[Rfam]
Nucleotides: 129
Base pairs, nucleotide, nucleotide: 013029014028016026017025075129076128077127078126079125086124087123089121090120091119092118093117
Number, partner (000 for none) and nucleotide at each position: 001000g002000g003000c004000u005000u006000u007000c008000u009000u010000g011000g012000c013029g014028c015000g016026g017025g018000a019000a020000c021000u022000c023000g024000a025017c026016c027000g028014g029013c030000g031000a032000c033000a034000c035000c036000g037000u038000u039000g040000a041000u042000c043000g044000c045000c046000g047000c048000c049000u050000u051000c052000a053000u054000c055000g056000a057000c058000g059000a060000g061000u062000a063000u064000c065000g066000c067000c068000a069000a070000g071000u072000c073000u074000a075129c076128g077127g078126u079125g080000g081000c082000g083000a084000g085000u086124c087123g088000a089121u090120c091119u092118g093117c094000c095000g096000g097000g098000c099000g100000c101000u102000g103000u104000c105000g106000g107000c108000g109000c110000a111000c112000g113000g114000c115000g116000u117093g118092c119091a120090g121089a122000u123087c124086g125079c126078a127077c128076c129075g
Shown here is a 129-nucleotide RNA sequence from Saccharomonospora piscinae, a member of the family "ALIL pseudoknot". The source organism's lineage runs through Bacteria, Bacillati, Actinomycetota, Pseudonocardiales and Saccharomonospora.